[Rfam]
RNA sequence: CGGGAGAAGCAUUGUUAAGGAACUCGGCAAAAUGGCCCCGUAACUUCGGGAGAAGGGGCGCCUGGGCAACCAGGCCGCAGAGAAAUGGCCCAAGCAACUGUUUAGCAAAAACAUAGGUCUAUGCAAAACCGAAAGGUGAAGUAUAUGGGCUGACGCCUGCCCGGUGCUGGAAGGUUAAGGGGAGAGGUUAGCCGCAAGGCGAAGCUUUGAACUUAAGCCCCAGUAAACGGCGGCCGUAACUAUAACGGUCCUAAGGUAGCGAAAUUCCUUGUCGGGUAAGUUCCGACCCGCACGAAAGGCGUAAUGAUUUGGGCACUGUCUCGACAAUGCACCCG
Number, nucleotide and partner (000 for none) at each position: 001c335002g334003g333004g332005a000006g000007a000008a000009g330010c329011a328012u327013u326014g325015u324016u323017a000018a321019g320020g319021a000022a000023c000024u000025c000026g000027g000028c000029a000030a000031a000032a000033u000034g000035g059036c058037c057038c056039c055040g000041u000042a000043a000044c049045u000046u000047c000048g000049g044050g000051a000052g000053a000054a000055g039056g038057g037058g036059c035060g075061c074062c073063u072064g071065g070066g000067c000068a000069a000070c065071c064072a063073g062074g061075c060076c080077g000078c000079a000080g076081a000082g000083a000084a000085a000086u000087g000088g314089c313090c312091c311092a310093a309094g308095c306096a305097a000098c000099u113100g112101u111102u000103u000104a000105g000106c000107a000108a000109a000110a000111a101112c100113a099114u000115a000116g151117g150118u149119c148120u147121a146122u145123g144124c141125a000126a000127a000128a137129c136130c135131g000132a000133a000134a000135g130136g129137u128138g000139a000140a000141g124142u000143a000144u123145a122146u121147g120148g119149g118150c117151u116152g000153a000154c301155g300156c299157c298158u000159g231160c230161c229162c000163g000164g228165u227166g224167c223168u222169g221170g220171a000172a000173g219174g218175u217176u000177a000178a000179g213180g212181g000182g000183a000184g208185a207186g206187g205188u204189u000190a000191g200192c199193c000194g000195c000196a000197a000198g000199g192200c191201g000202a000203a000204g188205c187206u186207u185208u184209g000210a000211a000212c180213u179214u000215a000216a000217g175218c174219c173220c170221c169222a168223g167224u166225a000226a000227a165228c164229g161230g160231c159232g250233g249234c248235c247236g246237u245238a000239a000240c000241u000242a000243u000244a000245a237246c236247g235248g234249u233250c232251c255252u000253a000254a000255g251256g000257u000258a000259g000260c000261g288262a000263a000264a000265u000266u000267c000268c000269u000270u000271g287272u286273c285274g284275g283276g282277u000278a000279a000280g000281u000282u276283c275284c274285g273286a272287c271288c261289c000290g000291c000292a000293c000294g000295a000296a000297a000298g157299g156300c155301g154302u000303a000304a000305u096306g095307a000308u094309u093310u092311g091312g090313g089314c088315a000316c000317u000318g000319u020320c019321u018322c000323g016324a015325c014326a013327a012328u011329g010330c009331a000332c004333c003334c002335g001

The family of this 335-nucleotide part of an RNA from Herbinix luporum is "Bacterial large subunit ribosomal RNA". It scores 2906 bits against the family's covariance model.